[Rfam]
RNA: c-di-AMP riboswitch aptamer (ydaO/yuaA leader)
Organism: Mumia flava
RNA sequence: CGUCCCCCGUUGCCGAGUGAUGAACCCCAGGGCAGGAGCGGAGGAACCAACUUCUGCGUGAACGCCUCACGGCGCUCGCGCUCGGGGUGAAGUCCUCACCAGGACCGGGCCACGUCUCUCGCCCGAACCCGACAGCUCACUUCGCAGGCGUUGCAGGGACACCGA
Number, nucleotide and partner (000 for none) at each position: 001c000002g000003u037004c036005c035006c000007c000008c000009g000010u000011u000012g000013c000014c000015g000016a000017g000018u000019g000020a000021u000022g000023a000024a000025c000026c000027c000028c000029a000030g000031g000032g000033c000034a000035g005036g004037a003038g145039c144040g143041g142042a141043g140044g000045a000046a000047c000048c084049a000050a000051c000052u000053u000054c000055u000056g000057c000058g000059u000060g000061a000062a000063c000064g000065c000066c000067u000068c000069a000070c000071g000072g000073c000074g000075c000076u000077c000078g000079c000080g000081c000082u000083c000084g048085g130086g129087g128088u000089g000090a000091a000092g000093u104094c103095c102096u101097c000098a000099c000100c000101a096102g095103g094104a093105c000106c000107g124108g123109g122110c121111c000112a000113c000114g000115u000116c000117u000118c000119u000120c000121g110122c109123c108124c107125g000126a000127a000128c087129c086130c085131g000132a000133c000134a000135g000136c000137u000138c000139a000140c043141u042142u041143c040144g039145c038146a000147g000148g000149c000150g000151u000152u000153g000154c000155a000156g000157g000158g000159a000160c000161a000162c000163c000164g000165a000